The record is a 55-nucleotide RNA from Citrobacter freundii, which matches "ES003 sRNA" in Rfam. The literature on the family includes a 2015 paper in BMC Genomics by Rau et al., "Differential expression of small RNAs under chemical stress and fed-batch fermentation in E. coli". Rfam's curators write: Differentially expressed under several chemical stress and fermentation conditions. A search with the family's covariance model found it, with a score of 47 bits.
RNA sequence: GUUUGCCAGAAAUCCAUAGGUAAGCAAAUUUGCAUUGAUUCAUACUGUGUUAAUG
Numbered sequence: 001g002u003u004u005g006c007c008a009g010a011a012a013u014c015c016a017u018a019g020g021u022a023a024g025c026a027a028a029u030u031u032g033c034a035u036u037g038a039u040u041c042a043u044a045c046u047g048u049g050u051u052a053a054u055g
Stems, first nucleotide, its partner, number of pairs: 001025007010017001033055002036052004